[Rfam]
Rfam assigns this 105-nucleotide RNA from Psilocybe cubensis to the family "Small nucleolar RNA Z13/snr52". The organism belongs to Psilocybe, within Eukaryota. Gene Ontology terms of the family: nucleolus and RNA processing. The family's RNA type in Rfam is C/D-box small nucleolar RNA. The base pairs follow the family's consensus structure, which was predicted with PFOLD.
RNA sequence: UUCGAAAGCAUGAUGAAGCCAUUUACGGAUGUAAAAACAUAACAAUACUCCGAGAGCGCUAAACCCCAUGUGGAGUCUUCCGUUGCCUUCCUUCUGACUUCUCGU
Numbered sequence: 001u002u003c004g005a006a007a008g009c010a011u012g013a014u015g016a017a018g019c020c021a022u023u024u025a026c027g028g029a030u031g032u033a034a035a036a037a038c039a040u041a042a043c044a045a046u047a048c049u050c051c052g053a054g055a056g057c058g059c060u061a062a063a064c065c066c067c068a069u070g071u072g073g074a075g076u077c078u079u080c081c082g083u084u085g086c087c088u089u090c091c092u093u094c095u096g097a098c099u100u101c102u103c104g105u
Base pairs, nucleotide, nucleotide: 003104004103005102026082027081028080029079